[Rfam]
RNA sequence: GUAACAUCUGAGGUAGUUUGGAAAUGCUGUCGACGCAUUGUGAUGUCAACAACAUUUCAACUAACUCGGCUGUUUC
Numbered sequence: 001g002u003a004a005c006a007u008c009u010g011a012g013g014u015a016g017u018u019u020g021g022a023a024a025u026g027c028u029g030u031c032g033a034c035g036c037a038u039u040g041u042g043a044u045g046u047c048a049a050c051a052a053c054a055u056u057u058c059a060a061c062u063a064a065c066u067c068g069g070c071u072g073u074u075u076c
Stems, first nucleotide, its partner, number of pairs: 003074003010067003014063004023056004028051003
The family of this 76-nucleotide sequence from Caenorhabditis brenneri is "mir-84 microRNA precursor family". A reference for the family is Ambros et al. (2003), "MicroRNAs and other tiny endogenous RNAs in C. elegans", Curr Biol. The match comes from Rfam's covariance-model search (63 bits).